[Rfam]
A member of the RNA family "Cyanobacterial functional RNA 1" from Synechococcus sp. RCC307, 56 nucleotides long. The literature on the family includes a 2005 paper in Genome Biol by Axmann et al., "Identification of cyanobacterial non-coding RNAs by comparative genome analysis". The family's RNA type in Rfam is small RNA. The family's consensus secondary structure is taken from published work.
RNA sequence: GUGCGGCGCUUCGCCGCACACUCCUCACACCACCACGCCCGGCGAGCCCGGGUUUU
Numbered sequence: 001g002u003g004c005g006g007c008g009c010u011u012c013g014c015c016g017c018a019c020a021c022u023c024c025u026c027a028c029a030c031c032a033c034c035a036c037g038c039c040c041g042g043c044g045a046g047c048c049c050g051g052g053u054u055u056u
Base pairs, nucleotide, nucleotide: 001019002018003017004016005015006014007013008012037053038052039051040050041049042048